This 33-nucleotide RNA sequence from Prevotella koreensis belongs to the Rfam family "DUF805b RNA". Pairs were carried over by alignment from the consensus structure, which is taken from published work. It scores 41 bits against the family's covariance model.
RNA sequence: UAUGCAGAUGCCGAAAAGCAUAAAGAGUAGGCA
Numbered sequence: 001u002a003u004g005c006a007g008a009u010g011c012c013g014a015a016a017a018g019c020a021u022a023a024a025g026a027g028u029a030g031g032c033a
Base pairs, nucleotide, nucleotide: 002021003020004019005018010032011031012030